[Rfam]
RNA sequence: AAACGAAAAUCGUAUCAACCGUAGACAGCAGGUGCAUGUUUGUGCUUAAUUUCCUGCCGAGGUUUAUUUCAUCAUUGCAAACAGCCCCGCUUGGGGCUGUUCAAAAUGGGGAGACCUUUUUAUGUCUACGAAAAACGCGACGUAAAGAGGUCUUUUUUAGUAGAG
Numbered sequence: 001a002a003a004c005g006a007a008a009a010u011c012g013u014a015u016c017a018a019c020c021g022u023a024g025a026c027a028g029c030a031g032g033u034g035c036a037u038g039u040u041u042g043u044g045c046u047u048a049a050u051u052u053c054c055u056g057c058c059g060a061g062g063u064u065u066a067u068u069u070c071a072u073c074a075u076u077g078c079a080a081a082c083a084g085c086c087c088c089g090c091u092u093g094g095g096g097c098u099g100u101u102c103a104a105a106a107u108g109g110g111g112a113g114a115c116c117u118u119u120u121u122a123u124g125u126c127u128a129c130g131a132a133a134a135a136c137g138c139g140a141c142g143u144a145a146a147g148a149g150g151u152c153u154u155u156u157u158u159a160g161u162a163g164a165g
Stems, first nucleotide, its partner, number of pairs: 028057005034045003113152014
RNA: Ribosomal protein L10 leader